RNA sequence: CUAGUAAAUCGCCUUAUCGAUUCUAAAUUUAUUUAGGGUAGGAAAGUCCGAACACCAUAGUGCAAUCAUAGUGGUUAACAGCCACCAGUCGUAAGGCUAGGAAAAGUGCAACAGAAAGUAUGUACAGGUAAUGCUGUAGUGAAACCAGGUAAACUCUAUGUGGUGCAAUGUCAUGUAUACUAACGUUCGAGUGUACACGCGCGAUUGUUAGAGGGUAGGCAGCUAAAGUUUGCUGGUAACAGUAAACGAAGAUAAAUGAUAAGGGCUCUUUUUAGAGUACAGAAUUCGGCUUAUAGAUUUGCUUAAUUA
Numbered sequence: 001c002u003a004g005u006a007a008a009u010c011g012c013c014u015u016a017u018c019g020a021u022u023c024u025a026a027a028u029u030u031a032u033u034u035a036g037g038g039u040a041g042g043a044a045a046g047u048c049c050g051a052a053c054a055c056c057a058u059a060g061u062g063c064a065a066u067c068a069u070a071g072u073g074g075u076u077a078a079c080a081g082c083c084a085c086c087a088g089u090c091g092u093a094a095g096g097c098u099a100g101g102a103a104a105a106g107u108g109c110a111a112c113a114g115a116a117a118g119u120a121u122g123u124a125c126a127g128g129u130a131a132u133g134c135u136g137u138a139g140u141g142a143a144a145c146c147a148g149g150u151a152a153a154c155u156c157u158a159u160g161u162g163g164u165g166c167a168a169u170g171u172c173a174u175g176u177a178u179a180c181u182a183a184c185g186u187u188c189g190a191g192u193g194u195a196c197a198c199g200c201g202c203g204a205u206u207g208u209u210a211g212a213g214g215g216u217a218g219g220c221a222g223c224u225a226a227a228g229u230u231u232g233c234u235g236g237u238a239a240c241a242g243u244a245a246a247c248g249a250a251g252a253u254a255a256a257u258g259a260u261a262a263g264g265g266c267u268c269u270u271u272u273u274a275g276a277g278u279a280c281a282g283a284a285u286u287c288g289g290c291u292u293a294u295a296g297a298u299u300u301g302c303u304u305a306a307u308u309a
Stems, first nucleotide, its partner, number of pairs: 003303008011294001012264007020039008044292003048289005053165004067160004071085005086100001087098004101156002106154002108150002123138005169221004180211005190205001192203003228247008

Bacterial RNase P class A: a 309-nucleotide RNA from Winogradskyella sp. PG-2. The organism belongs to Winogradskyella, within Bacteria. The family's RNA type in Rfam is ribozyme.